[Rfam]
RNA sequence: CUGAGGCCACACGACUGGCGCAGGUGGGACCACCACCAGGGAGUGACCCCCUCGGGGGCAGCACGGAGCAUCGACCGCCUGGGUGCUCCCG
Dot-bracket structure: ..(.((...(((..(([[[[...((((.....))))..))..)))...)).)...............(((((...]]]]..))))).....

Source information:
Shown here is a 91-nucleotide RNA from Nocardioides sp. dk884, a member of the family "ZMP/ZTP riboswitch aptamer (pfl RNA motif)". The base pairs follow the family's consensus structure, which is taken from published work. Lineage of the source: Bacteria > Bacillati > Actinomycetota > Actinomycetes > Nocardioides. A reference for the family is Ren et al. (2015), "Global RNA Fold and Molecular Recognition for a pfl Riboswitch Bound to ZMP, a Master Regulator of One-Carbon Metabolism", Structure. Its family is annotated with one-carbon metabolic process and regulation of purine nucleotide biosynthetic process in the Gene Ontology.